[Rfam]
RNA sequence: CCAUUUCAAGUGAGGAUUAGAGGGAACUGAACCCUCCAUUGCAAGACAGGAAGCAAGAAGGGUUCAGUUUCCUCUAAUAUCUCAUCUCAAAUGG
Numbered sequence: 001c002c003a004u005u006u007c008a009a010g011u012g013a014g015g016a017u018u019a020g021a022g023g024g025a026a027c028u029g030a031a032c033c034c035u036c037c038a039u040u041g042c043a044a045g046a047c048a049g050g051a052a053g054c055a056a057g058a059a060g061g062g063u064u065c066a067g068u069u070u071c072c073u074c075u076a077a078u079a080u081c082u083c084a085u086c087u088c089a090a091a092u093g094g
Base pairs, nucleotide, nucleotide: 004091005090006089008087011084012083013082014081016078017077018076019075020074021073023071024070025069026068027067028066029065030064032062033061